[Rfam]
RNA: mir-365 microRNA precursor family
Organism: Mus musculus
RNA sequence: CCGCAGGGAAAAUGAGGGACUUUUGGGGGCAGAUGUGUUUCCAUUCCGCUAUCAUAAUGCCCCUAAAAAUCCUUAUUGCUCUUGCA
Numbered sequence: 001c002c003g004c005a006g007g008g009a010a011a012a013u014g015a016g017g018g019a020c021u022u023u024u025g026g027g028g029g030c031a032g033a034u035g036u037g038u039u040u041c042c043a044u045u046c047c048g049c050u051a052u053c054a055u056a057a058u059g060c061c062c063c064u065a066a067a068a069a070u071c072c073u074u075a076u077u078g079c080u081c082u083u084g085c086a
Stems, first nucleotide, its partner, number of pairs: 015074005021068003025064007034056004